[Rfam]
RNA: ZMP/ZTP riboswitch aptamer (pfl RNA motif)
Organism: Paenibacillus lutrae
RNA sequence: AUAACCUUAUGUAACUGGCGUAACGUGGGGGAUACCACGAGGGAGCAUAAGGGGGAUAGAGCCGUACGCCUGGGCAAAAGUA
Number, nucleotide and partner (000 for none) at each position: 001a000002u000003a000004a000005c052006c051007u050008u049009a048010u047011g046012u045013a000014a000015c042016u041017g070018g069019c068020g067021u066022a000023a000024c000025g038026u037027g036028g035029g000030g000031g000032a000033u000034a000035c028036c027037a026038c025039g000040a000041g016042g015043g000044a000045g012046c011047a010048u009049a008050a007051g006052g005053g000054g000055g000056a000057u000058a000059g000060a000061g075062c074063c073064g000065u000066a021067c020068g019069c018070c017071u000072g000073g063074g062075c061076a000077a000078a000079a000080g000081u000082a000